Background: This 221-nucleotide RNA from Cynoglossus semilaevis belongs to the Rfam family "Small nucleolar RNA SNORA73 family". The family's consensus secondary structure is taken from published work. Clan: snR30-U17 clan. U17 (SNORA73A and SNORA73B) also known as E1 belongs to the H/ACA class of small nucleolar RNAs (snoRNAs). Vertebrate U17 is intron-encoded and ranges in length from 200-230 nucleotides, longer than most snoRNAs. It is one of the most abundant snoRNAs in human cells and is essential for the cleavage of pre-rRNA within the 5' external transcribed spacer (ETS). This cleavage leads to the formation of 18S rRNA. Regions of the U17 RNA are complementary to rRNA and act as guides for RNA/RNA interactions, although these regions do not seem to be well conserved between organisms. Gene Ontology terms of the family: nucleolus and RNA processing. A search with the family's covariance model found it, with a score of 178 bits.
[Rfam]
RNA sequence: CUGACGUGGACAUCCAGAGGGUUCUUCUCUCUGGCUCUGUCCUGGUGGCGUACGGGAGCGUAGCUCUGGGCUCAGACGUACAGUCCCCUUCCACGACGUCGGAGAACAAGCUCCGUCCCCGGCCGUAGAGGCUGGUGAGGACGAGCGUCCUGCAUAUUCCUACGCCUUCCCAGAGUCCUUUGGGGCAGUGACUGGGGAGUCAAACCAUGCAGUGCACAGUA
Numbered sequence: 001c002u003g004a005c006g007u008g009g010a011c012a013u014c015c016a017g018a019g020g021g022u023u024c025u026u027c028u029c030u031c032u033g034g035c036u037c038u039g040u041c042c043u044g045g046u047g048g049c050g051u052a053c054g055g056g057a058g059c060g061u062a063g064c065u066c067u068g069g070g071c072u073c074a075g076a077c078g079u080a081c082a083g084u085c086c087c088c089u090u091c092c093a094c095g096a097c098g099u100c101g102g103a104g105a106a107c108a109a110g111c112u113c114c115g116u117c118c119c120c121g122g123c124c125g126u127a128g129a130g131g132c133u134g135g136u137g138a139g140g141a142c143g144a145g146c147g148u149c150c151u152g153c154a155u156a157u158u159c160c161u162a163c164g165c166c167u168u169c170c171c172a173g174a175g176u177c178c179u180u181u182g183g184g185g186c187a188g189u190g191a192c193u194g195g196g197g198a199g200u201c202a203a204a205c206c207a208u209g210c211a212g213u214g215c216a217c218a219g220u221a
Stems, first nucleotide, its partner, number of pairs: 001102007008042005014034003019028003045094004054087004058081001060079002150212006166199006175186004